[Rfam]
RNA sequence: GUGAGUAGCAAGUAUUCAAGCGGAAGCCUUGAAGACCGAUGUGGAGAAGGGUUCCUCGGAAGCGCAUUGCGCCGAGGGUGAGGCGGACCUAAGGCUCUGCGGAGUUGCGAACGAGUGUCUUGCGGAAGCGAGGCUUGUCGAAAGGGAAGCAGGGAGAGUUCCUGCCCGCGCGCAGCGGAGGCCUCUUUUUAAGAGGGCGAUCCCGCCGAGGGAGCCGGCAACGGAGUUUGAAAGACGUACCCUUUGCUGCCGAUGGCGUGAGACCCGGGCAGAGAUUUCUUCUCUGGUCAAGAGCCCUCAGCCCCGGAAACGGUUUGGCCGGAGAGGAGGGGUGAUUGGGCUCGUGCAGGGGGAGAAGCGUUUCUUUCCCCCUCCGGGGAGCUCGCGACGUCCCUUGAAGAGGCAAAGGGUUUGAGGGCCUGGCAACAGAGCGCCUCGACCUGGGCGCGCGCCGUACCGAUAACCGCAACAGGUCUCCAAGGUGAGGAGCCUCUGGUUGA
Numbered sequence: 001g002u003g004a005g006u007a008g009c010a011a012g013u014a015u016u017c018a019a020g021c022g023g024a025a026g027c028c029u030u031g032a033a034g035a036c037c038g039a040u041g042u043g044g045a046g047a048a049g050g051g052u053u054c055c056u057c058g059g060a061a062g063c064g065c066a067u068u069g070c071g072c073c074g075a076g077g078g079u080g081a082g083g084c085g086g087a088c089c090u091a092a093g094g095c096u097c098u099g100c101g102g103a104g105u106u107g108c109g110a111a112c113g114a115g116u117g118u119c120u121u122g123c124g125g126a127a128g129c130g131a132g133g134c135u136u137g138u139c140g141a142a143a144g145g146g147a148a149g150c151a152g153g154g155a156g157a158g159u160u161c162c163u164g165c166c167c168g169c170g171c172g173c174a175g176c177g178g179a180g181g182c183c184u185c186u187u188u189u190u191a192a193g194a195g196g197g198c199g200a201u202c203c204c205g206c207c208g209a210g211g212g213a214g215c216c217g218g219c220a221a222c223g224g225a226g227u228u229u230g231a232a233a234g235a236c237g238u239a240c241c242c243u244u245u246g247c248u249g250c251c252g253a254u255g256g257c258g259u260g261a262g263a264c265c266c267g268g269g270c271a272g273a274g275a276u277u278u279c280u281u282c283u284c285u286g287g288u289c290a291a292g293a294g295c296c297c298u299c300a301g302c303c304c305c306g307g308a309a310a311c312g313g314u315u316u317g318g319c320c321g322g323a324g325a326g327g328a329g330g331g332g333u334g335a336u337u338g339g340g341c342u343c344g345u346g347c348a349g350g351g352g353g354a355g356a357a358g359c360g361u362u363u364c365u366u367u368c369c370c371c372c373u374c375c376g377g378g379g380a381g382c383u384c385g386c387g388a389c390g391u392c393c394c395u396u397g398a399a400g401a402g403g404c405a406a407a408g409g410g411u412u413u414g415a416g417g418g419c420c421u422g423g424c425a426a427c428a429g430a431g432c433g434c435c436u437c438g439a440c441c442u443g444g445g446c447g448c449g450c451g452c453c454g455u456a457c458c459g460a461u462a463a464c465c466g467c468a469a470c471a472g473g474u475c476u477c478c479a480a481g482g483u484g485a486g487g488a489g490c491c492u493c494u495g496g497u498u499g500a
Base pairs, nucleotide, nucleotide: 015033016032017031018030019029020028034498035497036496037495043478044477045476046475049458050457054077055076056075057074058073059072062070063069084454085453086452088145089144093139094138096110097109099108100107101106118131119130149165150164151163152162153161168450169449170448171447178437179436180435181434182433183431184430243407244406245405246404247403248402252392253391254390255389257387258386259385260384261383262382265377266376267375268288270286271285272284273283292343293342294341295340296339301333302332303331304330305329311321312320313319350372351371352370353369355367356366357365358364464473465472480492481491482490483489
A member of the RNA family "Eukaryotic large subunit ribosomal RNA" from Thecamonas trahens, 500 nucleotides of a longer RNA. Clan: LSU clan. The sequence is in the family's curated seed alignment. Lineage of the source: Eukaryota > Apusozoa > Apusomonadidae > Thecamonas > Thecamonas trahens.